The record is a 104-nucleotide sequence from Fervidibacillus halotolerans, which matches "pan motif" in Rfam.
The match comes from Rfam's covariance-model search (44 bits).
Lineage of the source: Bacteria > Bacillati > Caryophanales > Bacillaceae > Fervidibacillus.

RNA sequence: GGAACUGCACCAUUCGGGCGGUAUCCUACGUCUUUAAUCGGUUUUCAAACGAAAAUUGUGGACAAUUUUUCUGCCUGUAGCCUUGUUAGGACCGGGACGGAAGG
Numbered sequence: 001g002g003a004a005c006u007g008c009a010c011c012a013u014u015c016g017g018g019c020g021g022u023a024u025c026c027u028a029c030g031u032c033u034u035u036a037a038u039c040g041g042u043u044u045u046c047a048a049a050c051g052a053a054a055a056u057u058g059u060g061g062a063c064a065a066u067u068u069u070u071c072u073g074c075c076u077g078u079a080g081c082c083u084u085g086u087u088a089g090g091a092c093c094g095g096g097a098c099g100g101a102a103g104g
Base pairs, nucleotide, nucleotide: 001026002025003024004022005021006020007019008018010017011016071100072099073098074096075095076094077093081090082089